[Rfam]
RNA sequence: CACUUCUUGUCGGAGUGCCUUAGGGCUGAGAUCACAGAUUAUAUGUGGGAUCCGUGGAACCUGAUUGGGUUAAUACCUGCGAAGGGAACAGGUCAAAGUUGCAC
Numbered sequence: 001c002a003c004u005u006c007u008u009g010u011c012g013g014a015g016u017g018c019c020u021u022a023g024g025g026c027u028g029a030g031a032u033c034a035c036a037g038a039u040u041a042u043a044u045g046u047g048g049g050a051u052c053c054g055u056g057g058a059a060c061c062u063g064a065u066u067g068g069g070u071u072a073a074u075a076c077c078u079g080c081g082a083a084g085g086g087a088a089c090a091g092g093u094c095a096a097a098g099u100u101g102c103a104c
Stems, first nucleotide, its partner, number of pairs: 006092005011054004016048001017026003033047004060085003066079004

Annotation: A member of the RNA family "TPP riboswitch aptamer (THI element)" from Psychromonas sp. CNPT3, 104 nucleotides long. A search with the family's covariance model found it, with a score of 73 bits. Lineage of the source: Bacteria > Pseudomonadati > Alteromonadales > Psychromonadaceae > Psychromonas. The family's consensus secondary structure is taken from published work.